[Rfam]
RNA sequence: GGUCAAGAGAGCCAGCGCCAAGCCCCAGCUUGCUGGCCGGCAACCCUCCAACCGCGGUGGGGUGCCCUGGGUGAGGACCUGGCCGGGUGCGGAGUCCGCCCCGGCAAGCGCGGGCG
Dot-bracket structure: ((((....(.((((((....((......)).)))))))(((..(((.((......))..))).))).........))))..((((((.((((...))))))))))...........
Numbered sequence: 001g002g003u004c005a006a007g008a009g010a011g012c013c014a015g016c017g018c019c020a021a022g023c024c025c026c027a028g029c030u031u032g033c034u035g036g037c038c039g040g041c042a043a044c045c046c047u048c049c050a051a052c053c054g055c056g057g058u059g060g061g062g063u064g065c066c067c068u069g070g071g072u073g074a075g076g077a078c079c080u081g082g083c084c085g086g087g088u089g090c091g092g093a094g095u096c097c098g099c100c101c102c103g104g105c106a107a108g109c110g111c112g113g114g115c116g
Stems, first nucleotide, its partner, number of pairs: 001079004009038001011037006021030002039066003044062003048057002082105006089099004

SAM (S-adenosyl methionine) riboswitch aptamer: a 116-nucleotide RNA from Rothia santali. It scores 103 bits against the family's covariance model. Rfam's curators write: SAM-IV is a mRNA element that regulates gene expression via direct sensing of S-adenosylmethionine (SAM or AdoMet). SAM-IV riboswitches share conserved nucleotide positions with the previously described SAM-I riboswitches sequence analysis and molecular recognition experiments suggest that SAM-I and SAM-IV riboswitches share similar ligand binding sites, but have different scaffolds. The family's consensus secondary structure is taken from published work. For this family Rfam cites "The aptamer core of SAM-IV riboswitches mimics the ligand-binding site of SAM-I riboswitches" (Weinberg et al., RNA, 2008).